[Rfam]
RNA sequence: AGAGGGUAAGGAUAAUGAUUCAAUUAGAUGUGUGAAAGGUUAAUUACUUUCUGAACUCAAACUUUUGAGGCAUAUCCAUUCAUAUAUCUGACUACACUUU
Numbered sequence: 001a002g003a004g005g006g007u008a009a010g011g012a013u014a015a016u017g018a019u020u021c022a023a024u025u026a027g028a029u030g031u032g033u034g035a036a037a038g039g040u041u042a043a044u045u046a047c048u049u050u051c052u053g054a055a056c057u058c059a060a061a062c063u064u065u066u067g068a069g070g071c072a073u074a075u076c077c078a079u080u081c082a083u084a085u086a087u088c089u090g091a092c093u094a095c096a097c098u099u100u
Stems, first nucleotide, its partner, number of pairs: 001100004006095003010092001
RNA: Small nucleolar RNA Z266
Organism: Lupinus albus